[Rfam]
RNA sequence: ACAACCGUGUCUUUGACACAACCUUCCUUUGGCUGUGUGCCCUGAAAAGGGCAUAUUAGUUGGAGACGAUAGCGCGGUUUUUGAGGAUGUCUUUUGUCCGCGCGUUAAUGCCCUCCUUAGCCUGCCGUUUUCUGGCACUGGGUGGAGAGGAAUCAAAAACUAGUCCCUGUU
Numbered sequence: 001a002c003a004a005c006c007g008u009g010u011c012u013u014u015g016a017c018a019c020a021a022c023c024u025u026c027c028u029u030u031g032g033c034u035g036u037g038u039g040c041c042c043u044g045a046a047a048a049g050g051g052c053a054u055a056u057u058a059g060u061u062g063g064a065g066a067c068g069a070u071a072g073c074g075c076g077g078u079u080u081u082u083g084a085g086g087a088u089g090u091c092u093u094u095u096g097u098c099c100g101c102g103c104g105u106u107a108a109u110g111c112c113c114u115c116c117u118u119a120g121c122c123u124g125c126c127g128u129u130u131u132c133u134g135g136c137a138c139u140g141g142g143u144g145g146a147g148a149g150g151a152a153u154c155a156a157a158a159a160c161u162a163g164u165c166c167c168u169g170u171u
Base pairs, nucleotide, nucleotide: 007019008018009017025069026068027065028064029063030062031061032060033059034058035057036055037054038053039052043048086165087164088163089160090159092158093157094156095155096154111150112149113147114146115145116144120143121142122140129137131135

The record is a 171-nucleotide part of an RNA from Apiosordaria backusii, which matches "Ascomycota telomerase RNA" in Rfam. The family is grouped with related families in Rfam's "Telomerase clan". It scores 858 bits against the family's covariance model. The pairing is the family consensus, mapped onto this sequence. Rfam classes the family as a non-coding RNA gene.